Shown here is a 96-nucleotide RNA from Calorimonas adulescens, a member of the family "THF (Tetrahydrofolate) riboswitch aptamer". From the family's description: Tetrahydrofolate (THF) riboswitch was first reported for Ames et al. as an RNA motif in 5' untranslated (5'-UTR)regions of folate transport and biosynthesis genes in Firmicutes genomes. Rfam links the family to the GO term tetrahydrofolate metabolic process. The literature on the family includes a 2010 paper in Chem Biol by Ames et al., "A eubacterial riboswitch class that senses the coenzyme tetrahydrofolate". NCBI's taxonomy places the organism under Bacteria, Bacillota, Clostridia, Thermoanaerobacteraceae, Calorimonas. Pairs were carried over by alignment from the consensus structure, which is taken from published work.

[Rfam]
RNA sequence: GGCAGAGUAGGCAUCACGCGUCAAGUGUCAGGAGAUGGGAUGUUGCUCCUGAACGAAAGGUUUCGCCCUGCGGUGUUGAUGCCGCAUUCCGCUGCC
Numbered sequence: 001g002g003c004a005g006a007g008u009a010g011g012c013a014u015c016a017c018g019c020g021u022c023a024a025g026u027g028u029c030a031g032g033a034g035a036u037g038g039g040a041u042g043u044u045g046c047u048c049c050u051g052a053a054c055g056a057a058a059g060g061u062u063u064c065g066c067c068c069u070g071c072g073g074u075g076u077u078g079a080u081g082c083c084g085c086a087u088u089c090c091g092c093u094g095c096c
Stems, first nucleotide, its partner, number of pairs: 001096005010083006016076003019072003025054002028052007038089005058069003